[Rfam]
RNA sequence: AUGUGGUGAGGUAGUAAGUUGUGUUGUUGAAGGGGAUCAGAAUUUUUCACCCUAUAUAGGAGAUAACUAUACAACUUACUGCCUUCCUCAU
Numbered sequence: 001a002u003g004u005g006g007u008g009a010g011g012u013a014g015u016a017a018g019u020u021g022u023g024u025u026g027u028u029g030a031a032g033g034g035g036a037u038c039a040g041a042a043u044u045u046u047u048c049a050c051c052c053u054a055u056a057u058a059g060g061a062g063a064u065a066a067c068u069a070u071a072c073a074a075c076u077u078a079c080u081g082c083c084u085u086c087c088u089c090a091u
Stems, first nucleotide, its partner, number of pairs: 001091003005087002008085017026067002032053004055062001
About this RNA:
let-7 microRNA precursor family: a 91-nucleotide sequence from Austrofundulus limnaeus. The base pairs follow the family's consensus structure, which was predicted with RNAalifold. This family represents the microRNAs (miRNA) let-7 and mir-98. let-7 was identified from a study of developmental timing in C. elegans, and was later shown to be part of a much larger class of non-coding RNAs termed miRNAs. Lineage of the source: Eukaryota > Opisthokonta > Teleostei > Clupeocephala > Austrofundulus. A search with the family's covariance model found it, with a score of 71 bits.